[Rfam]
RNA sequence: GGUUGGUGAUGAUAACUGGAAAGGCUUGUUUCUCAAAACAUUCGCAGUGGCCGCCUAAGAGCUUUCGCCUUUCGCCAGGCUUGAGAGUUUAUGCUGCUUUUUAUCCUUCCUUCCUUGGAUGUCUGAAACC
Numbered sequence: 001g002g003u004u005g006g007u008g009a010u011g012a013u014a015a016c017u018g019g020a021a022a023g024g025c026u027u028g029u030u031u032c033u034c035a036a037a038a039c040a041u042u043c044g045c046a047g048u049g050g051c052c053g054c055c056u057a058a059g060a061g062c063u064u065u066c067g068c069c070u071u072u073c074g075c076c077a078g079g080c081u082u083g084a085g086a087g088u089u090u091a092u093g094c095u096g097c098u099u100u101u102u103a104u105c106c107u108u109c110c111u112u113c114c115u116u117g118g119a120u121g122u123c124u125g126a127a128a129c130c
Stems, first nucleotide, its partner, number of pairs: 001130004061088006
Rfam assigns this 130-nucleotide RNA sequence from Brassica napus to the family "Small nucleolar RNA SNORD14". The family's RNA type in Rfam is C/D-box small nucleolar RNA. From the family's description: U14 small nucleolar RNA (U14 snoRNA) is required for early cleavages of eukaryotic precursor rRNAs. In yeasts, this molecule possess a stem-loop region (known as the Y-domain) which is essential for function. A similar structure, but with a different consensus sequence, is found in plants, but is absent in vertebrates. Pairs were carried over by alignment from the consensus structure, which was predicted with PFOLD. The literature on the family includes a 1996 paper in Nucleic Acids Res by Samarsky et al., "An essential domain in Saccharomyces cerevisiae U14 snoRNA is absent in vertebrates, but conserved in other yeasts". A search with the family's covariance model found it, with a score of 70 bits. NCBI's taxonomy places the organism under Eukaryota, Streptophyta, Streptophytina, Brassicaceae, Brassica.